[Rfam]
The record is a 237-nucleotide RNA from Naumovozyma castellii, which matches "Small nucleolar RNA snR31" in Rfam. The sequence is in the family's curated seed alignment. The base pairs follow the family's consensus structure, which was predicted with WAR. Rfam links the family to the GO terms RNA processing and nucleolus. NCBI's taxonomy places the organism under Eukaryota, Fungi, Dikarya, Saccharomycetes, Naumovozyma.

RNA sequence: AAUUAACUCAAAUGGCAUGUGUUCCUGUCGACGUCAUCUUACUCUUUACUUCUGUGAGUGAGAUUUCCGAUGUCCAAACAGGGUGAUUGUUUCCCUCAAAUGCAUGCCAGAUAAAGUGCCCUUGGGUACAAGAAAGAUGUAUCUCCAGCUGUUGAUAAGAGGGGGAAGCCUUUCUCUUCCACCUCGCCAAAAUUUUCAAAACUCCUGAUACAAUUGGUCAUGAUUCUUUCUACAUUC
Number, nucleotide and partner (000 for none) at each position: 001a000002a000003u000004u000005a000006a000007c000008u000009c000010a000011a000012a000013u000014g000015g107016c106017a105018u104019g103020u102021g101022u100023u000024c082025c081026u080027g079028u077029c000030g075031a000032c072033g071034u070035c069036a064037u063038c062039u061040u000041a000042c000043u000044c000045u000046u057047u056048a000049c000050u000051u000052c000053u000054g000055u000056g047057a046058g000059u000060g000061a039062g038063a037064u036065u000066u000067c000068c000069g035070a034071u033072g032073u000074c000075c030076a000077a028078a000079c027080a026081g025082g024083g097084u000085g094086a000087u000088u000089g000090u000091u000092u000093c000094c085095c000096u000097c083098a000099a000100a022101u021102g020103c019104a018105u017106g016107c015108c000109a000110g000111a000112u000113a000114a000115a000116g000117u000118g000119c000120c000121c000122u000123u000124g000125g000126g000127u000128a000129c000130a000131a231132g230133a229134a228135a000136g226137a225138u000139g000140u000141a000142u000143c000144u000145c217146c216147a215148g214149c000150u212151g211152u210153u000154g000155a000156u000157a000158a000159g185160a184161g183162g182163g000164g180165g179166a178167a177168g176169c000170c000171u000172u000173u000174c000175u000176c168177u167178u166179c165180c164181a000182c162183c161184u160185c159186g000187c000188c000189a000190a000191a000192a000193u000194u000195u000196u000197c000198a000199a000200a000201a000202c000203u000204c000205c000206u000207g000208a000209u000210a152211c151212a150213a000214u148215u147216g146217g145218u000219c000220a000221u000222g000223a000224u000225u137226c136227u000228u134229u133230c132231u131232a000233c000234a000235u000236u000237c000